[Rfam]
RNA sequence: UGCAAGCGCACUCUGUGUCACAUUGAAUCCUCAUGUGAAGACAAUUUGUAAACUUGCUAAACUAAACUAAAGCUGCGACUUAUCCAUGUGUUCAUGCAAUAAAAUCAAAUUGAUCACAUUGAAUACGGGCUUUACACUCG
Numbered sequence: 001u002g003c004a005a006g007c008g009c010a011c012u013c014u015g016u017g018u019c020a021c022a023u024u025g026a027a028u029c030c031u032c033a034u035g036u037g038a039a040g041a042c043a044a045u046u047u048g049u050a051a052a053c054u055u056g057c058u059a060a061a062c063u064a065a066a067c068u069a070a071a072g073c074u075g076c077g078a079c080u081u082a083u084c085c086a087u088g089u090g091u092u093c094a095u096g097c098a099a100u101a102a103a104a105u106c107a108a109a110u111u112g113a114u115c116a117c118a119u120u121g122a123a124u125a126c127g128g129g130c131u132u133u134a135c136a137c138u139c140g
Stems, first nucleotide, its partner, number of pairs: 002057005010049002014043003018038006025032002064138001069132002072130003076127002083122002086119005092113002095109001